[Rfam]
A member of the RNA family "mir-1 microRNA precursor family" from Panagrellus redivivus, 59 nucleotides long. The base pairs follow the family's consensus structure, which was predicted with RNAalifold. NCBI's taxonomy places the organism under Eukaryota, Metazoa, Nematoda, Rhabditida, Panagrellus. Rfam links the family to the GO terms miRNA-mediated post-transcriptional gene silencing and RISC complex. From the family's description: This family represents the microRNA (miRNA) mir-1 family. miRNAs are transcribed as ~70nt precursors (modelled here) and subsequently processed by the Dicer enzyme to give a ~22nt product. In this case the mature sequence comes from the 3' arm of the precursor. The extents of the hairpin precursors are not generally known and are estimated based on hairpin prediction. The products are thought to have regulatory roles through complementarity to mRNA. The involvement of Dicer in miRNA processing suggests a relationship with the phenomenon of RNA interference. miRNAs are numbered based on the sequence of the mature RNA. This family also contains the mir-206 from human, which appears to be related to mir-1. Rfam's curators put it in the seed alignment. A reference for the family is Lee and Ambros (2001), "An extensive class of small RNAs in Caenorhabditis elegans", Science.

RNA sequence: ACGUGCUUCUUUGCAAGACCAUAGUGAAUACUGUUUAUGGAAUGUAAAGAAGUAUGUAG
Numbered sequence: 001a002c003g004u005g006c007u008u009c010u011u012u013g014c015a016a017g018a019c020c021a022u023a024g025u026g027a028a029u030a031c032u033g034u035u036u037a038u039g040g041a042a043u044g045u046a047a048a049g050a051a052g053u054a055u056g057u058a059g
Base pairs, nucleotide, nucleotide: 001057002056003055004054005053006052007051008050009049010048011047012046013045014044015043019040020039021038022037023036
Dot-bracket structure: (((((((((((((((...(((((............)))))..)))))))))))))))..